RNA sequence: GGUACCGUGGCCGAGUGGCUAGGCAGAGGUCUGCAAAACCUUUUACAGCAGUUCGAAUCUGCUCGGUACCU
Numbered sequence: 001g002g003u004a005c006c007g008u009g010g011c012c013g014a015g016u017g018g019c020u021a022g023g024c025a026g027a028g029g030u031c032u033g034c035a036a037a038a039c040c041u042u043u044u045a046c047a048g049c050a051g052u053u054c055g056a057a058u059c060u061g062c063u064c065g066g067u068a069c070c071u
Stems, first nucleotide, its partner, number of pairs: 001070007010024003026042005047063005